The family of this 64-nucleotide RNA sequence from Massilia psychrophila is "Betaproteobacteria toxic small RNA". The match comes from Rfam's covariance-model search (55 bits). The family's consensus secondary structure was predicted with WAR. Rfam 15.1 lists 951 matches to the family in 508 species. Lineage of the source: Bacteria > Pseudomonadota > Betaproteobacteria > Burkholderiales > Massilia.

Nucleotides: 064
Base pairs, nucleotide, nucleotide: 008033009032010031011030012029014027015026038057039056040055041054042053043052044051
Number, partner (000 for none) and nucleotide at each position: 001000c002000g003000u004000c005000u006000c007000c008033u009032c010031c011030a012029a013000g014027u015026c016000u017000c018000c019000u020000c021000a022000a023000a024000a025000a026015g027014a028000a029012u030011u031010g032009g033008a034000u035000u036000u037000a038057a039056g040055c041054c042053c043052g044051c045000c046000a047000a048000a049000c050000a051044g052043c053042g054041g055040g056039c057038u058000u059000u060000u061000u062000u063000u064000u